[Rfam]
A member of the RNA family "Acido-Lenti-1 RNA" from Novipirellula galeiformis, 47 nucleotides long.
The family has 87 seed sequences and 2,607 matches in Rfam 15.1.

RNA sequence: CCCCGGACUCACGUCCGAGGCUACUGCCUGCCGUCGCUAUCGCGACU
Numbered sequence: 001c002c003c004c005g006g007a008c009u010c011a012c013g014u015c016c017g018a019g020g021c022u023a024c025u026g027c028c029u030g031c032c033g034u035c036g037c038u039a040u041c042g043c044g045a046c047u
Stems, first nucleotide, its partner, number of pairs: 001020002004017005033046005
By type it is a small RNA. Taxonomically the source falls in Novipirellula (Bacteria, Pseudomonadati, Pirellulales, Pirellulaceae).